About this RNA:
Rfam assigns this 96-nucleotide sequence to the family "PhotoRC-II RNA". It is one of the family's seed sequences.
RNA sequence: GCACAUUCGUCUAACACCCCGUAAACCGAGACCUCUAGGGUGUCUAAAUCACGUCUCUCAUACCUUGUCUAAGGGUGGCAAGGAAUAGUAACUCCA
Numbered sequence: 001g002c003a004c005a006u007u008c009g010u011c012u013a014a015c016a017c018c019c020c021g022u023a024a025a026c027c028g029a030g031a032c033c034u035c036u037a038g039g040g041u042g043u044c045u046a047a048a049u050c051a052c053g054u055c056u057c058u059c060a061u062a063c064c065u066u067g068u069c070u071a072a073g074g075g076u077g078g079c080a081a082g083g084a085a086u087a088g089u090a091a092c093u094c095c096a
Base pairs, nucleotide, nucleotide: 015042016041017040018039019038022037023036028057029056030055031054032053063083064082065081066080067079068078069077